[Rfam]
RNA sequence: GGAUCGGGAGGCGGCCCUUGGGAAGGCAGCCAGGCAUGGAUCCGAACCCCCUGUCUCGUAUGGUCGCAGCGCCGAAGCCCGGCGGCGCGCGCG
Numbered sequence: 001g002g003a004u005c006g007g008g009a010g011g012c013g014g015c016c017c018u019u020g021g022g023a024a025g026g027c028a029g030c031c032a033g034g035c036a037u038g039g040a041u042c043c044g045a046a047c048c049c050c051c052u053g054u055c056u057c058g059u060a061u062g063g064u065c066g067c068a069g070c071g072c073c074g075a076a077g078c079c080c081g082g083c084g085g086c087g088c089g090c091g092c093g
Stems, first nucleotide, its partner, number of pairs: 001043005010031003014027003065093003070087005
This 93-nucleotide RNA from Pseudooceanicola nanhaiensis belongs to the Rfam family "Rhodo-rpoB RNA". Rfam classes the family as a cis-regulatory element. The organism belongs to Pseudooceanicola, within Bacteria.